[Rfam]
RNA: MIR8562 microRNA precursor family
RNA sequence: UUUUCUACAAAUCAGAAUGACCUGAAAUUUGGAGCAUGUGUUAAUCAAAAUUAGGCAAAUCUAAGAAAAAUAUCAUAAAAAUAUUUUACAUGAAAAAAGUUGACCAAAAUACCCCAAAAAUUUUUCGGAGGUAUUUUGGUCAAUUGUUUUUUCACGAGUUAUUUUUUUUAUAUUUUUAUUAGGUGCGGCUCACUCAGAUGUACACACGCUCCAAAUUUCAAAUCAUUCUGAUUUGUAGAAAA
Numbered sequence: 001u002u003u004u005c006u007a008c009a010a011a012u013c014a015g016a017a018u019g020a021c022c023u024g025a026a027a028u029u030u031g032g033a034g035c036a037u038g039u040g041u042u043a044a045u046c047a048a049a050a051u052u053a054g055g056c057a058a059a060u061c062u063a064a065g066a067a068a069a070a071u072a073u074c075a076u077a078a079a080a081a082u083a084u085u086u087u088a089c090a091u092g093a094a095a096a097a098a099g100u101u102g103a104c105c106a107a108a109a110u111a112c113c114c115c116a117a118a119a120a121u122u123u124u125u126c127g128g129a130g131g132u133a134u135u136u137u138g139g140u141c142a143a144u145u146g147u148u149u150u151u152u153c154a155c156g157a158g159u160u161a162u163u164u165u166u167u168u169u170a171u172a173u174u175u176u177u178a179u180u181a182g183g184u185g186c187g188g189c190u191c192a193c194u195c196a197g198a199u200g201u202a203c204a205c206a207c208g209c210u211c212c213a214a215a216u217u218u219c220a221a222a223u224c225a226u227u228c229u230g231a232u233u234u235g236u237a238g239a240a241a242a
Stems, first nucleotide, its partner, number of pairs: 001242020023220012037206005044199002061182004066177008075168001077166004096147001098145016116125003
Dot-bracket structure: ((((((((((((((((((((..((((((((((((..(((((..((...............((((.((((((((.(.((((...............(.((((((((((((((((..(((....)))....)))))))))))))))).)...............)))).).)))))))).))))...............))..)))))..))))))))))))..))))))))))))))))))))